[Rfam]
Shown here is a 327-nucleotide RNA sequence from Saccharibacter sp. 17.LH.SD, a member of the family "Alphaproteobacteria transfer-messenger RNA". NCBI's taxonomy places the organism under Bacteria, Pseudomonadota, Alphaproteobacteria, Acetobacterales, Saccharibacter. Bacterial tmRNA, also known as 10Sa RNA or SsrA, is named for its dual tRNA and mRNA-like properties. The match comes from Rfam's covariance-model search (263 bits). By type it is a non-coding RNA gene. Rfam links the family to the GO term RNA catabolic process.
RNA sequence: UCGCUUGUAAGCAUGCCAUAAAGAUACUACCUUAGCUCCGUCAGGUUCUCCUGACUAUGGUGAUAAACGGUAGAUGGAAUAGGUGUAGUGGACCCGGGGGCAGUACCCGGCGUCUCCACCAGAUGCUGCCUUGCUAGAGGUGGUUUUUAUGGGGACGAAACAGGCUCGACACGCAUAGUAAAGAUCUACUUUUUGCUCGGCAUGGUACCACCGUUAUCGGACUAAAACACUAUAAGUGCCAAUGAUAACUCUGAGGUGCUCGCUGUUGCUGCGUAAGUAGCGAUAAGCGCGGUUCGGGGGAGCACCGGGCAACAGAAGCCCCCCACC
Dot-bracket structure: .......................................(((((......)))))...(((((.....(((((((........(((.(((...(((((.......)))))(((((((.................................)))))))............))))))........)))))))..)))))[[[..(((..((.]]].....)).))).................................................................[[[[..(((((...]]]]............)))))...
Numbered sequence: 001u002c003g004c005u006u007g008u009a010a011g012c013a014u015g016c017c018a019u020a021a022a023g024a025u026a027c028u029a030c031c032u033u034a035g036c037u038c039c040g041u042c043a044g045g046u047u048c049u050c051c052u053g054a055c056u057a058u059g060g061u062g063a064u065a066a067a068c069g070g071u072a073g074a075u076g077g078a079a080u081a082g083g084u085g086u087a088g089u090g091g092a093c094c095c096g097g098g099g100g101c102a103g104u105a106c107c108c109g110g111c112g113u114c115u116c117c118a119c120c121a122g123a124u125g126c127u128g129c130c131u132u133g134c135u136a137g138a139g140g141u142g143g144u145u146u147u148u149a150u151g152g153g154g155a156c157g158a159a160a161c162a163g164g165c166u167c168g169a170c171a172c173g174c175a176u177a178g179u180a181a182a183g184a185u186c187u188a189c190u191u192u193u194u195g196c197u198c199g200g201c202a203u204g205g206u207a208c209c210a211c212c213g214u215u216a217u218c219g220g221a222c223u224a225a226a227a228c229a230c231u232a233u234a235a236g237u238g239c240c241a242a243u244g245a246u247a248a249c250u251c252u253g254a255g256g257u258g259c260u261c262g263c264u265g266u267u268g269c270u271g272c273g274u275a276a277g278u279a280g281c282g283a284u285a286a287g288c289g290c291g292g293u294u295c296g297g298g299g300g301a302g303c304a305c306c307g308g309g310c311a312a313c314a315g316a317a318g319c320c321c322c323c324c325a326c327c
Stems, first nucleotide, its partner, number of pairs: 040055005059197005069190007084175003088172003094110005111157007198213003203224003208220002290307004296324005
Overview: The base pairs follow the family's consensus structure, which is taken from published work.